[Rfam]
RNA sequence: UGAACGAGUAGAAGCGUUCAGCCUGCCUCUGUGUGCAGUGCCCGGAAAUUGCUCAAGUC
Numbered sequence: 001u002g003a004a005c006g007a008g009u010a011g012a013a014g015c016g017u018u019c020a021g022c023c024u025g026c027c028u029c030u031g032u033g034u035g036c037a038g039u040g041c042c043c044g045g046a047a048a049u050u051g052c053u054c055a056a057g058u059c
Stems, first nucleotide, its partner, number of pairs: 006054005015044001018046002021041002023038004
RNA: Xanthine riboswitch aptamer (NMT1 RNA)
Organism: Comamonas testosteroni